Notes:
Group II catalytic intron D1-D4-4: a 140-nucleotide RNA sequence. The family has 90 seed sequences and 840 matches in Rfam 15.1. Gene Ontology term of the family: Group II intron splicing. Rfam describes the family as follows. Group II introns are found in rRNA, tRNA and mRNA of organelles in fungi, plants and protists, and also in mRNA in bacteria.
RNA sequence: UUGCCGGUGUAAGUCCGGUCACGGUAAUCGCCAGUGAGCCGUGUAGUUAAACUCGGUGCGUUGUAGUAAUACAGGGUGCUAAGCGAGUGGAUAAAGUAACCUUGAAAAAGGUGCGAGCAAUCAUGCAGACCGUAACAUAA
Numbered sequence: 001u002u003g004c005c006g007g008u009g010u011a012a013g014u015c016c017g018g019u020c021a022c023g024g025u026a027a028u029c030g031c032c033a034g035u036g037a038g039c040c041g042u043g044u045a046g047u048u049a050a051a052c053u054c055g056g057u058g059c060g061u062u063g064u065a066g067u068a069a070u071a072c073a074g075g076g077u078g079c080u081a082a083g084c085g086a087g088u089g090g091a092u093a094a095a096g097u098a099a100c101c102u103u104g105a106a107a108a109a110g111g112u113g114c115g116a117g118c119a120a121u122c123a124u125g126c127a128g129a130c131c132g133u134a135a136c137a138u139a140a
Stems, first nucleotide, its partner, number of pairs: 020043005051088004055080005064071002096114001099112005117133002